RNA: U8 small nucleolar RNA
Organism: Microcaecilia unicolor
RNA sequence: UCGUCAGUGAGGUAUAUCCUUACCUGUUCCUCCUCCGGGAGAAGCAGAACAUGAUGAGCGGAGCGGGAUGAAUGUGUGAUUACAGUCUCCCUGCUCUGGGGUCUCGCAACGCCCCAGGGUUUCCAAUCUGAU
Numbered sequence: 001u002c003g004u005c006a007g008u009g010a011g012g013u014a015u016a017u018c019c020u021u022a023c024c025u026g027u028u029c030c031u032c033c034u035c036c037g038g039g040a041g042a043a044g045c046a047g048a049a050c051a052u053g054a055u056g057a058g059c060g061g062a063g064c065g066g067g068a069u070g071a072a073u074g075u076g077u078g079a080u081u082a083c084a085g086u087c088u089c090c091c092u093g094c095u096c097u098g099g100g101g102u103c104u105c106g107c108a109a110c111g112c113c114c115c116a117g118g119g120u121u122u123c124c125a126a127u128c129u130g131a132u
Stems, first nucleotide, its partner, number of pairs: 024047003028043001030041004070089002075084001077082001093121001095119003099115003